[Rfam]
RNA sequence: CCGUGCUAGGCGGGGAGGUAGCGGUGCCCUGUACUCGCAAUCCGCUGUAGCGAGGCUGAACUCCUUUCCUAGGUUUUGCAGACGUAAGGUCUGCCUUAAGUAAGUGGUGUUGACAUCUGGGUCCUGCGCAACGGGAACCUACGAAUCCUGUCAGGUCCGGAAGGAAGCAGCAGUAAGUAGGACCUCUCGUGUGCCGCGGGGUUGCCUGGAUCGAGCUAACUGCUUAAGUAACGCUUAUGUUUGCAUUAUCGAAGAAAGGUGCACGG
Numbered sequence: 001c002c003g004u005g006c007u008a009g010g011c012g013g014g015g016a017g018g019u020a021g022c023g024g025u026g027c028c029c030u031g032u033a034c035u036c037g038c039a040a041u042c043c044g045c046u047g048u049a050g051c052g053a054g055g056c057u058g059a060a061c062u063c064c065u066u067u068c069c070u071a072g073g074u075u076u077u078g079c080a081g082a083c084g085u086a087a088g089g090u091c092u093g094c095c096u097u098a099a100g101u102a103a104g105u106g107g108u109g110u111u112g113a114c115a116u117c118u119g120g121g122u123c124c125u126g127c128g129c130a131a132c133g134g135g136a137a138c139c140u141a142c143g144a145a146u147c148c149u150g151u152c153a154g155g156u157c158c159g160g161a162a163g164g165a166a167g168c169a170g171c172a173g174u175a176a177g178u179a180g181g182a183c184c185u186c187u188c189g190u191g192u193g194c195c196g197c198g199g200g201g202u203u204g205c206c207u208g209g210a211u212c213g214a215g216c217u218a219a220c221u222g223c224u225u226a227a228g229u230a231a232c233g234c235u236u237a238u239g240u241u242u243g244c245a246u247u248a249u250c251g252a253a254g255a256a257a258g259g260u261g262c263a264c265g266g
Stems, first nucleotide, its partner, number of pairs: 001266006009057003012030004017025001019023001034054005063259006072250003079243010092230002096227006104220002106217003115211008123200006129191002132189005138181005148173004156165003